[Rfam]
RNA sequence: UGUUAUAGAAGUGGUGCCAUUUCAGCAGUUGUUAGGCCUGUGAUAAAAAAUAUAUAUAUUUUUAUCACAGGCCUAACAACUGCUGAAAUGGCACCACUUCUA
Numbered sequence: 001u002g003u004u005a006u007a008g009a010a011g012u013g014g015u016g017c018c019a020u021u022u023c024a025g026c027a028g029u030u031g032u033u034a035g036g037c038c039u040g041u042g043a044u045a046a047a048a049a050a051u052a053u054a055u056a057u058a059u060u061u062u063u064a065u066c067a068c069a070g071g072c073c074u075a076a077c078a079a080c081u082g083c084u085g086a087a088a089u090g091g092c093a094c095c096a097c098u099u100c101u102a
Stems, first nucleotide, its partner, number of pairs: 016092007024084015040068006
RNA: mir-36 microRNA precursor family